[Rfam]
RNA: Bacterial large subunit ribosomal RNA, nucleotides 837 to 1270
RNA sequence: CUCCCCGAAAUGCAUUUAGGUGCAGCGUUGAUUUAGUUUUAUAGAGGUAGAGCUACUGAUUGGAUGCGGGGGCUUCACCGCCUACCAAUUCCUGACAAACUCCGAAUGCUAUAAAAUGAUGAUCAGCAGUGAGGGCAUGGGUGCUAAGGUCCAUGUCCGAGAGGGAAAGAACCCAGACCAUCAGCUAAGGUCCCAAAAUAUAUGCUAAGUUGAAAAAACGCGGUUGAACUGCUUAGACAGCUAGGAUGUUGGCUUGGAAGCAGCCAUUCAUUUAAAGAGUGCGUAACAGCUCACUAGUCGAGCGGUUCGGCAUGGAUAAUAAUCGGGCAUAAGCAUAUUACCGAAGCUAUGGGAUAUUUAAUAUCGGUAGGGGAGCAUUGUAGUGACGUUGAAGGUGUAUCGUGAGGUAUGCUGGAGUAGCUACAAAAGAAAAU
Dot-bracket structure: ((((((....(((((....))))).((((((((.((((((((((.....(((....((...(((...((((((......)))).))...)))...))..)).).....)))))))))..)))))))).)...((((((((((......))))))))))....(((......)))...((((.(((...(((......(.((((((.............((..((((((((((.......(((((.(((..(((.........)))...)))(...)(...((......)).).)))))...)))))))))).))..................))))))))))...)))))))(((((...)))))....))))))(.(((((((.((......((((((((....))))))))...)).)))))))..).....